[Rfam]
RNA sequence: ACAACAACAAUAAGAAACAUCAAAAUAUAAUAAGAAUAAGACGUAACGGCUCCAGCACAAUAAGAACAACAGCAUAGGAGACGCAGCUAACUGAUUACUUUGCAGAGGAUAAUGAUUGAAGCGACACAGAUGAUCCGAGAAUAACAAAACUGCAUAAAUGCAGCACCCGUAUCAACUGAAAACGCAACAAUUAAAUCAGCAUUCAAAGCAAUCCGUUAACUUUUCUACAGCUUAAAUGAGCUGUAAAAACUUGCAGGCAAAUAACAACAACAAAAUGCCGAAAAGAACAAUAAAAACGCAUAGAAAUAUUUACGAGGGAGACCAAAGUCUCCCUCGCAACCUUAUUGAUUCAUACUCUACGCUCUA
Numbered sequence: 001a002c003a004a005c006a007a008c009a010a011u012a013a014g015a016a017a018c019a020u021c022a023a024a025a026u027a028u029a030a031u032a033a034g035a036a037u038a039a040g041a042c043g044u045a046a047c048g049g050c051u052c053c054a055g056c057a058c059a060a061u062a063a064g065a066a067c068a069a070c071a072g073c074a075u076a077g078g079a080g081a082c083g084c085a086g087c088u089a090a091c092u093g094a095u096u097a098c099u100u101u102g103c104a105g106a107g108g109a110u111a112a113u114g115a116u117u118g119a120a121g122c123g124a125c126a127c128a129g130a131u132g133a134u135c136c137g138a139g140a141a142u143a144a145c146a147a148a149a150c151u152g153c154a155u156a157a158a159u160g161c162a163g164c165a166c167c168c169g170u171a172u173c174a175a176c177u178g179a180a181a182a183c184g185c186a187a188c189a190a191u192u193a194a195a196u197c198a199g200c201a202u203u204c205a206a207a208g209c210a211a212u213c214c215g216u217u218a219a220c221u222u223u224u225c226u227a228c229a230g231c232u233u234a235a236a237u238g239a240g241c242u243g244u245a246a247a248a249a250c251u252u253g254c255a256g257g258c259a260a261a262u263a264a265c266a267a268c269a270a271c272a273a274a275a276u277g278c279c280g281a282a283a284a285g286a287a288c289a290a291u292a293a294a295a296a297c298g299c300a301u302a303g304a305a306a307u308a309u310u311u312a313c314g315a316g317g318g319a320g321a322c323c324a325a326a327g328u329c330u331c332c333c334u335c336g337c338a339a340c341c342u343u344a345u346u347g348a349u350u351c352a353u354a355c356u357c358u359a360c361g362c363u364c365u366a
Stems, first nucleotide, its partner, number of pairs: 047083002050080004098208005113199001127178003131174003150163005251348001254347001256279003296342001298340001314337001315334008
RNA: Pseudomonas sRNA CrcZ
Organism: Pseudomonas sp. C27(2019)